[Rfam]
RNA sequence: CUCACCCAUGGUAUCUAAUGUCUAGUUUUUAUGUAUUUGUAACUAGACAUUUUGUUUUAAGGGUGAAUAAAAAUGUUAACAGGUCUUGCGACACAGUUAGCUUCUUUCUAUCACAAGCUUUCUGUUACUAAAUCCCUGGUCACAUUU
Numbered sequence: 001c002u003c004a005c006c007c008a009u010g011g012u013a014u015c016u017a018a019u020g021u022c023u024a025g026u027u028u029u030u031a032u033g034u035a036u037u038u039g040u041a042a043c044u045a046g047a048c049a050u051u052u053u054g055u056u057u058u059a060a061g062g063g064u065g066a067a068u069a070a071a072a073a074u075g076u077u078a079a080c081a082g083g084u085c086u087u088g089c090g091a092c093a094c095a096g097u098u099a100g101c102u103u104c105u106u107u108c109u110a111u112c113a114c115a116a117g118c119u120u121u122c123u124g125u126u127a128c129u130a131a132a133u134c135c136c137u138g139g140u141c142a143c144a145u146u147u
Base pairs, nucleotide, nucleotide: 004064005063006062007061009059017051018050019049020048021047022046023045024044025043026042027041033040078140080138081137082136093125094124095123096122099119100118101117102116
Overview
Rfam assigns this 147-nucleotide sequence from Gossypium harknessii to the family "Small nucleolar RNA F1/F2/snoR5a". The family's consensus secondary structure was predicted with PFOLD. This family contains F1, F2 and snoR5a sequences, all of which are members of the the H/ACA class of snoRNA that guide the sites of modification of uridines to pseudouridines. Rfam 15.1 lists 325 matches to the family in 97 species.